[Rfam]
RNA sequence: CCCUAGCCGCCGGGGUCGAAAGAUAGGGGCGGACGCAACAGCCGGCGGAGCGCGCUUCACUAUCACCGGCAGCC
Numbered sequence: 001c002c003c004u005a006g007c008c009g010c011c012g013g014g015g016u017c018g019a020a021a022g023a024u025a026g027g028g029g030c031g032g033a034c035g036c037a038a039c040a041g042c043c044g045g046c047g048g049a050g051c052g053c054g055c056u057u058c059a060c061u062a063u064c065a066c067c068g069g070c071a072g073c074c
Base pairs, nucleotide, nucleotide: 001015002014003013004012007032008031009030010029011028016023017022034054035053036052041070042069043068044067045066
RNA: Proteo-phage-1 RNA